[Rfam]
RNA sequence: AAUGUAAACGUCAUUGAGUGCAGCGUUGAUGAGGUUUAAAUUUUCUAUUAUUACUUUAAUAAAUUACCUCAUCUCAUUUCAUCAAGAUGAAAAUUAAAACUUCAUUAGCGCUGCACUCAAUUAUGCUUCUA
Numbered sequence: 001a002a003u004g005u006a007a008a009c010g011u012c013a014u015u016g017a018g019u020g021c022a023g024c025g026u027u028g029a030u031g032a033g034g035u036u037u038a039a040a041u042u043u044u045c046u047a048u049u050a051u052u053a054c055u056u057u058a059a060u061a062a063a064u065u066a067c068c069u070c071a072u073c074u075c076a077u078u079u080c081a082u083c084a085a086g087a088u089g090a091a092a093a094u095u096a097a098a099a100c101u102u103c104a105u106u107a108g109c110g111c112u113g114c115a116c117u118c119a120a121u122u123a124u125g126c127u128u129c130u131a
Stems, first nucleotide, its partner, number of pairs: 006128002009125003013121016030104008
The record is a 131-nucleotide RNA from Cannabis sativa, which matches "MIR397 microRNA precursor family" in Rfam. Rfam 15.1 lists 496 matches to the family in 218 species. Rfam links the family to the GO terms miRNA-mediated post-transcriptional gene silencing and RISC complex. On this family, see Mica et al., BMC Genomics 2009: "High throughput approaches reveal splicing of primary microRNA transcripts and tissue specific expression of mature microRNAs in Vitis vinifera".